[Rfam]
RNA sequence: CAAACAAUAGAAUCUCUAUAAUGGCUCGGUUUCAGACCCAGUCCCGCAAUUUUUGGAGACCCUAUUCUCAGGAAUAGGGUG
Numbered sequence: 001c002a003a004a005c006a007a008u009a010g011a012a013u014c015u016c017u018a019u020a021a022u023g024g025c026u027c028g029g030u031u032u033c034a035g036a037c038c039c040a041g042u043c044c045c046g047c048a049a050u051u052u053u054u055g056g057a058g059a060c061c062c063u064a065u066u067c068u069c070a071g072g073a074a075u076a077g078g079g080u081g
Stems, first nucleotide, its partner, number of pairs: 023038002026035001028033001059080009

A member of the RNA family "SmY spliceosomal RNA" from Caenorhabditis brenneri, 81 nucleotides long. The family's consensus secondary structure is taken from published work. The family's RNA type in Rfam is spliceosomal small nuclear RNA. For this family Rfam cites "A novel family of C. elegans snRNPs contains proteins associated with trans-splicing" (MacMorris et al., RNA, 2007).